[Rfam]
RNA sequence: CGGUUUGCAAGCUGACGAUCUGCCACCUAUAUCAACGGUGUCGGGUUUGACCCGGCUAUGGCGAUAAACUGCGGCGUACAAUAGGCGCAGCGGACCCGGGGGCAGUACCCGGCGGCUCCACCACCGCAGCUGAGGCGCUCAGUGCCACGCUUCACGCGUGGUGGCGUGCACCAGCUGCGUUAGAGGGGCCGAACCAGGAUCGACGUGUGUUGAAAAGCGCUGUUUUCGCUCGGAAUGGGACCACCGCAACGGCCCAUUACACAAGUGCCAACGAUAACGAAGCACUCGCGAUUGCGGCGUAACUGAGGGCCUCACGGCCUAAGGUUACUCCAAAAUAGCGCGGUUCGGGCCUCACCGGGCAACAGAAGAGGACACC
Numbered sequence: 001c002g003g004u005u006u007g008c009a010a011g012c013u014g015a016c017g018a019u020c021u022g023c024c025a026c027c028u029a030u031a032u033c034a035a036c037g038g039u040g041u042c043g044g045g046u047u048u049g050a051c052c053c054g055g056c057u058a059u060g061g062c063g064a065u066a067a068a069c070u071g072c073g074g075c076g077u078a079c080a081a082u083a084g085g086c087g088c089a090g091c092g093g094a095c096c097c098g099g100g101g102g103c104a105g106u107a108c109c110c111g112g113c114g115g116c117u118c119c120a121c122c123a124c125c126g127c128a129g130c131u132g133a134g135g136c137g138c139u140c141a142g143u144g145c146c147a148c149g150c151u152u153c154a155c156g157c158g159u160g161g162u163g164g165c166g167u168g169c170a171c172c173a174g175c176u177g178c179g180u181u182a183g184a185g186g187g188g189c190c191g192a193a194c195c196a197g198g199a200u201c202g203a204c205g206u207g208u209g210u211u212g213a214a215a216a217g218c219g220c221u222g223u224u225u226u227c228g229c230u231c232g233g234a235a236u237g238g239g240a241c242c243a244c245c246g247c248a249a250c251g252g253c254c255c256a257u258u259a260c261a262c263a264a265g266u267g268c269c270a271a272c273g274a275u276a277a278c279g280a281a282g283c284a285c286u287c288g289c290g291a292u293u294g295c296g297g298c299g300u301a302a303c304u305g306a307g308g309g310c311c312u313c314a315c316g317g318c319c320u321a322a323g324g325u326u327a328c329u330c331c332a333a334a335a336u337a338g339c340g341c342g343g344u345u346c347g348g349g350c351c352u353c354a355c356c357g358g359g360c361a362a363c364a365g366a367a368g369a370g371g372a373c374a375c376c
Base pairs, nucleotide, nucleotide: 040056041055042054043053044052060230061229062228063227064226071223072222073221074220075219076218077217086209087208088207090206091205092204096112097111098110099109100108113191114190115189116188117187118186119185231246232245233244236256237255238254241252242251341357342356343355344354347373350370352368
A member of the RNA family "Alphaproteobacteria transfer-messenger RNA" from Sphingomonas aerophila, 376 nucleotides long.
Rfam describes the family as follows. Bacterial tmRNA, also known as 10Sa RNA or SsrA, is named for its dual tRNA and mRNA-like properties. Its role is to liberate the mRNA from a stalled ribosome.
The family's RNA type in Rfam is non-coding RNA gene.
Lineage of the source: Bacteria > Alphaproteobacteria > Sphingomonadales > Sphingomonadaceae > Sphingomonas.
The literature on the family includes a 1996 paper in RNA by Williams and Bartel, "Phylogenetic analysis of tmRNA secondary structure".
Pairs were carried over by alignment from the consensus structure, which is taken from published work.